[Rfam]
RNA sequence: UAUGAUAAAGCCAAACCAAUCGUGAGGUUGGGACGGAAAGUUUCGGGUCUUACCGACACCUGUUUUCCUUGGACUUCUUUUUCGAGACAGCCGGGCUGCCAUUA
Dot-bracket structure: (.((......((...((((((....))))))..[))..((((.((((((((................................))))).])))))))..))..)
RNA: c-di-GMP-I-GGC riboswitch aptamer